The record is a 154-nucleotide RNA from Actinocatenispora rupis, which matches "FMN riboswitch aptamer (RFN element)" in Rfam. The family's consensus secondary structure is taken from published work.
RNA sequence: GCGCGCUGGCGGGGUUCGGUGCAAUUCCGAACCGGCGGUGACACGGUGCGAGCCGUGAAGCCCGCGACCCGACACGGCGACUCACGUCGCGGUGGCGGUUGAUCCGGUGGGAGUCCGGAGCCGACGGUGACAGUCCGGAAGGGAGCGAGCGCGU
Dot-bracket structure: ..(((((.((......(((.......))).[[((((((.....................[[))))...((..........................))....(((((.......)))))]])).(((.....]]))).......)).)))))..
Taxonomically the source falls in Actinocatenispora (Bacteria, Actinomycetota, Actinomycetes, Micromonosporales).